[Rfam]
RNA sequence: GAACUCGGAAGUUCGACUAAAACCGUGACAUCCUGUCACAACGUCGAACGACCGACAUCCGUGUCGG
Dot-bracket structure: ..........(((((((.......(((((.....)))))...)))))))..(((((......)))))
Numbered sequence: 001g002a003a004c005u006c007g008g009a010a011g012u013u014c015g016a017c018u019a020a021a022a023c024c025g026u027g028a029c030a031u032c033c034u035g036u037c038a039c040a041a042c043g044u045c046g047a048a049c050g051a052c053c054g055a056c057a058u059c060c061g062u063g064u065c066g067g
Stems, first nucleotide, its partner, number of pairs: 011049007025039005052067005